[Rfam]
RNA: ASpks TB sRNA
RNA sequence: CUUCAACGAGCCCAGCCACAGCGGAAGUUCGGCAUCGCGUCCCUGACCGUAGGUCGCCAGCAGCGCCUGCGCCUC
Number, nucleotide and partner (000 for none) at each position: 001c000002u000003u000004c000005a000006a000007c000008g000009a000010g000011c000012c000013c000014a000015g000016c024017c023018a000019c000020a000021g000022c000023g017024g016025a000026a000027g000028u000029u000030c000031g000032g070033c069034a000035u000036c000037g000038c065039g064040u000041c000042c000043c060044u059045g058046a000047c056048c000049g054050u000051a000052g000053g000054u049055c000056g047057c000058c045059a044060g043061c000062a000063g000064c039065g038066c000067c000068u000069g033070c032071g000072c000073c000074u000075c000